The record is an 82-nucleotide RNA from Clarias magur, which matches "mir-221 microRNA precursor family" in Rfam. Gene Ontology terms of the family: RISC complex and miRNA-mediated post-transcriptional gene silencing. Rfam 15.1 lists 1,797 matches to the family in 643 species. A search with the family's covariance model found it, with a score of 80 bits. The organism belongs to Clarias, within Eukaryota. A reference for the family is Yao et al. (2008), "MicroRNA profile of Marek's disease virus-transformed T-cell line MSB-1: predominance of virus-encoded microRNAs", J Virol.
RNA sequence: CUCAUGAGCUGCUCAGUAGUCAGUGUAGAUCCUGUGUUGCAGUCAGCAGCUACAUCUGGCUACUGGGUCUCUGAUGGCAUUC
Numbered sequence: 001c002u003c004a005u006g007a008g009c010u011g012c013u014c015a016g017u018a019g020u021c022a023g024u025g026u027a028g029a030u031c032c033u034g035u036g037u038u039g040c041a042g043u044c045a046g047c048a049g050c051u052a053c054a055u056c057u058g059g060c061u062a063c064u065g066g067g068u069c070u071c072u073g074a075u076g077g078c079a080u081u082c
Stems, first nucleotide, its partner, number of pairs: 013066006020059003023055006032049004